[Rfam]
Notes:
Rfam assigns this 184-nucleotide RNA from Paenibacillus sp. 7541 to the family "FMN riboswitch aptamer (RFN element)".

RNA sequence: GUUAUCCUUCGGGGUCGGGUGCAAUUCCCAACCGGCGGUGAUGCACGUGUCAUAAUCAGCGUAGGAAAGUAAGAGCUGUAGACGCGGGCUUAGUCCGUGACCCGGAUGCGUGAAAGUGCGCGCAUACGGUGGACCUGGUGCAAAUCCGGGACCGACAGUAUAGUCUGGAUGGGAGAAGGAUGGA
Numbered sequence: 001g002u003u004a005u006c007c008u009u010c011g012g013g014g015u016c017g018g019g020u021g022c023a024a025u026u027c028c029c030a031a032c033c034g035g036c037g038g039u040g041a042u043g044c045a046c047g048u049g050u051c052a053u054a055a056u057c058a059g060c061g062u063a064g065g066a067a068a069g070u071a072a073g074a075g076c077u078g079u080a081g082a083c084g085c086g087g088g089c090u091u092a093g094u095c096c097g098u099g100a101c102c103c104g105g106a107u108g109c110g111u112g113a114a115a116g117u118g119c120g121c122g123c124a125u126a127c128g129g130u131g132g133a134c135c136u137g138g139u140g141c142a143a144a145u146c147c148g149g150g151a152c153c154g155a156c157a158g159u160a161u162a163g164u165c166u167g168g169a170u171g172g173g174a175g176a177a178g179g180a181u182g183g184a
Base pairs, nucleotide, nucleotide: 003182004181005180006179007178008177009176010175017029018028019027031164032163033154034153035098036097037096038095102129103128134150135149136148137147138146156167157166158165